Shown here is a 102-nucleotide RNA from Metabacillus indicus, a member of the family "Purine riboswitch aptamer".
RNA sequence: AAAAAUAUUGUCUAAAUACGUCGUAUAAAGUUGGGGAUAUGGCCCAAAAGUUUCUACCAAGCUGCCGUAAAGAGCUUGACUACGAGGUGUUAUAUGGGUCGG
Numbered sequence: 001a002a003a004a005a006u007a008u009u010g011u012c013u014a015a016a017u018a019c020g021u022c023g024u025a026u027a028a029a030g031u032u033g034g035g036g037a038u039a040u041g042g043c044c045c046a047a048a049a050g051u052u053u054c055u056a057c058c059a060a061g062c063u064g065c066c067g068u069a070a071a072g073a074g075c076u077u078g079a080c081u082a083c084g085a086g087g088u089g090u091u092a093u094a095u096g097g098g099u100c101g102g
Stems, first nucleotide, its partner, number of pairs: 018088002021085005031047005058078006
Background
The source organism's lineage runs through Bacteria, Bacillota, Bacilli, Caryophanales and Metabacillus.